[Rfam]
RNA: mir-221 microRNA precursor family
Organism: Anser cygnoides
RNA sequence: GCCGUUGGCCGCCCAGUAGCCGGUGUAGGAUCUGUCUGACCGUCCCGCUAACAGCUACAUCUGAUUACUGGGUCACCAACGGGCCGU
Dot-bracket structure: ............((((((..((((((((...((((...............)))))))))).))..))))))................
Numbered sequence: 001g002c003c004g005u006u007g008g009c010c011g012c013c014c015a016g017u018a019g020c021c022g023g024u025g026u027a028g029g030a031u032c033u034g035u036c037u038g039a040c041c042g043u044c045c046c047g048c049u050a051a052c053a054g055c056u057a058c059a060u061c062u063g064a065u066u067a068c069u070g071g072g073u074c075a076c077c078a079a080c081g082g083g084c085c086g087u
Stems, first nucleotide, its partner, number of pairs: 013071006021063002023060006032054004